[Rfam]
RNA sequence: GCGACUCUGGAAAGCAGGAGCGGCGCUGGUCCCGCUCCUCACCGACGGUGCAAGCCGGUCCCGCCGGCCGGCGAAGCUCUCAGGUACCGAUGACAGAGAGGGGAGG
Numbered sequence: 001g002c003g004a005c006u007c008u009g010g011a012a013a014g015c016a017g018g019a020g021c022g023g024c025g026c027u028g029g030u031c032c033c034g035c036u037c038c039u040c041a042c043c044g045a046c047g048g049u050g051c052a053a054g055c056c057g058g059u060c061c062c063g064c065c066g067g068c069c070g071g072c073g074a075a076g077c078u079c080u081c082a083g084g085u086a087c088c089g090a091u092g093a094c095a096g097a098g099a100g101g102g103g104a105g106g
Stems, first nucleotide, its partner, number of pairs: 002101001005098005016039007041085003044081002048079001050077001054072006
The family of this 106-nucleotide RNA from Carbonactinospora thermoautotrophica is "Glycine riboswitch aptamer". Taxonomically the source falls in Carbonactinospora (Bacteria, Actinomycetota, Actinomycetes, Carbonactinosporaceae).